A member of the RNA family "Bacterial RNase P class A" from Tenacibaculum maritimum, 312 nucleotides long. The family's RNA type in Rfam is ribozyme. Pairs were carried over by alignment from the consensus structure, which is taken from published work.

RNA sequence: AAAGCAGACCUAUCUUAUCGACUUAAGUAAAUUAAGUAGGAAAGUCCGGACACCAUAGAGCAAGCAUAGCGGAUAACAUCCGUCCAGCGUAAGCUGAGGACCAGUGCAACAGAAAGAAUGUACAGUUCGGCUGUAGUGAAACCAGGUAAACUCUAUGCGGUGCAAUGCCAUGUACAUUAGAGCUUGAGAGCUGCUCGCUCGAUUCUAAGGGGUAGGCAGAUGGAUUCUAAAAGUAAUUUUAGAACUAGAUAAAUGAUAGGACCUCUGAAGUAAGUAGGAGGACAGGAUCCGGCUUAUUGGUCUGCUUUUUUA
Numbered sequence: 001a002a003a004g005c006a007g008a009c010c011u012a013u014c015u016u017a018u019c020g021a022c023u024u025a026a027g028u029a030a031a032u033u034a035a036g037u038a039g040g041a042a043a044g045u046c047c048g049g050a051c052a053c054c055a056u057a058g059a060g061c062a063a064g065c066a067u068a069g070c071g072g073a074u075a076a077c078a079u080c081c082g083u084c085c086a087g088c089g090u091a092a093g094c095u096g097a098g099g100a101c102c103a104g105u106g107c108a109a110c111a112g113a114a115a116g117a118a119u120g121u122a123c124a125g126u127u128c129g130g131c132u133g134u135a136g137u138g139a140a141a142c143c144a145g146g147u148a149a150a151c152u153c154u155a156u157g158c159g160g161u162g163c164a165a166u167g168c169c170a171u172g173u174a175c176a177u178u179a180g181a182g183c184u185u186g187a188g189a190g191c192u193g194c195u196c197g198c199u200c201g202a203u204u205c206u207a208a209g210g211g212g213u214a215g216g217c218a219g220a221u222g223g224a225u226u227c228u229a230a231a232a233g234u235a236a237u238u239u240u241a242g243a244a245c246u247a248g249a250u251a252a253a254u255g256a257u258a259g260g261a262c263c264u265c266u267g268a269a270g271u272a273a274g275u276a277g278g279a280g281g282a283c284a285g286g287a288u289c290c291g292g293c294u295u296a297u298u299g300g301u302c303u304g305c306u307u308u309u310u311u312a
Stems, first nucleotide, its partner, number of pairs: 001308010012297001013261007021037006042295003046292005051162004060195001064158005069083005084098001085096004099153002104151002106147002121135006166218004177208005188200004225244008